Rfam assigns this 112-nucleotide RNA sequence from Piscinibacter sp. HJYY11 to the family "Glycine riboswitch aptamer". The source organism's lineage runs through Bacteria, Pseudomonadati, Betaproteobacteria, Burkholderiales and Piscinibacter.

RNA sequence: GCGUUCCUCGCUGGAGAGAGGCCCACCCCGAGUGGGCCCACCGAAGGGGCAAGCGGGUGCUGCGUGAGCGGCCCUCGCCAAUCUCUCAGGUAAAGCGGACAGUGAGGGCAUU
Numbered sequence: 001g002c003g004u005u006c007c008u009c010g011c012u013g014g015a016g017a018g019a020g021g022c023c024c025a026c027c028c029c030g031a032g033u034g035g036g037c038c039c040a041c042c043g044a045a046g047g048g049g050c051a052a053g054c055g056g057g058u059g060c061u062g063c064g065u066g067a068g069c070g071g072c073c074c075u076c077g078c079c080a081a082u083c084u085c086u087c088a089g090g091u092a093a094a095g096c097g098g099a100c101a102g103u104g105a106g107g108g109c110a111u112u
Base pairs, nucleotide, nucleotide: 006107007106008105009104010103011102012101013100020038021037022036023035024034025033040091041090042089043087044086047085048084049083053078054077055076056075057074